[Rfam]
RNA sequence: UAAAGUUAUGAGCAGAUUCCCGAUAGGAUUCACGAAAGUGAAGUUGCCUUGUAACCACCAAUCAUAGGGGGAAUAAAAAUG
Numbered sequence: 001u002a003a004a005g006u007u008a009u010g011a012g013c014a015g016a017u018u019c020c021c022g023a024u025a026g027g028a029u030u031c032a033c034g035a036a037a038g039u040g041a042a043g044u045u046g047c048c049u050u051g052u053a054a055c056c057a058c059c060a061a062u063c064a065u066a067g068g069g070g071g072a073a074u075a076a077a078a079a080u081g
Base pairs, nucleotide, nucleotide: 017073018072019071020070021069025049026048027047029042030041031040032039033038055068056067
The family of this 81-nucleotide sequence from Fructilactobacillus fructivorans is "SAM-III riboswitch aptamer (SMK box)". NCBI's taxonomy places the organism under Bacteria, Bacillota, Bacilli, Lactobacillales, Fructilactobacillus. A reference for the family is Fuchs et al. (2007), "S-adenosylmethionine directly inhibits binding of 30S ribosomal subunits to the SMK box translational riboswitch RNA", Proc Natl Acad Sci U S A. The match comes from Rfam's covariance-model search (63 bits). Gene Ontology terms of the family: methionine adenosyltransferase activity and regulation of translational initiation.